This 120-nucleotide sequence from Shouchella clausii belongs to the Rfam family "Ribosomal protein L20 leader". The source organism's lineage runs through Bacteria, Bacillati, Bacillaceae, Shouchella and Shouchella clausii. This family is a putative r-protein leader autoregulatory structure found in B. subtilis and other low-GC Gram-positive bacteria. It is located in the 5' untranslated regions of mRNAs encoding initiation factor 3 followed by ribosomal proteins L35 and L20 (infC-rpmI-rplT). A Rho-independent transcription terminator structure that is probably involved in regulation is included at the 3' end. Rfam links the family to the GO term regulation of gene expression. The family's consensus secondary structure was predicted with CMfinder. Rfam classes the family as a cis-regulatory leader.
[Rfam]
RNA sequence: UAGAGCAAGAAGAAGCGCCCGCUUCUCACCUGUACGACAUUGGUUGCCAGGUUAGAAACCGUCAGUUUGUUAAAAUGCUGAUUAAGUGUGGGUGCCGUGCGUCCACACUUUUUUCACGUU
Numbered sequence: 001u002a003g004a005g006c007a008a009g010a011a012g013a014a015g016c017g018c019c020c021g022c023u024u025c026u027c028a029c030c031u032g033u034a035c036g037a038c039a040u041u042g043g044u045u046g047c048c049a050g051g052u053u054a055g056a057a058a059c060c061g062u063c064a065g066u067u068u069g070u071u072a073a074a075a076u077g078c079u080g081a082u083u084a085a086g087u088g089u090g091g092g093u094g095c096c097g098u099g100c101g102u103c104c105a106c107a108c109u110u111u112u113u114u115c116a117c118g119u120u
Base pairs, nucleotide, nucleotide: 011026012025013024014023015022016021028052029051030050035046036045037044038043087107088106089105090104091103092102093101094100095099